A member of the RNA family "mir-8834 microRNA precursor family" from Vulpes vulpes, 105 nucleotides long. It scores 65 bits against the family's covariance model. Its family is annotated with RISC complex and miRNA-mediated post-transcriptional gene silencing in the Gene Ontology. Taxonomically the source falls in Vulpes (Eukaryota, Craniata, Vertebrata, Caniformia).
[Rfam]
RNA sequence: AGGAGGAACAACCUCAGUGGCGGGGCCAGCUCUGGAGCCCUGGAUUCAGCUCCCACAGUAACUAGGGAGCUCUCCGUCUGCAGUGCCUGGAUGCUCCCCAUGAGG
Numbered sequence: 001a002g003g004a005g006g007a008a009c010a011a012c013c014u015c016a017g018u019g020g021c022g023g024g025g026c027c028a029g030c031u032c033u034g035g036a037g038c039c040c041u042g043g044a045u046u047c048a049g050c051u052c053c054c055a056c057a058g059u060a061a062c063u064a065g066g067g068a069g070c071u072c073u074c075c076g077u078c079u080g081c082a083g084u085g086c087c088u089g090g091a092u093g094c095u096c097c098c099c100a101u102g103a104g105g
Base pairs, nucleotide, nucleotide: 002097003096004095005094007092009089010088012085014083019078020077021076022075023074024073025072028071029070030069031068032067033066036063040058041057042056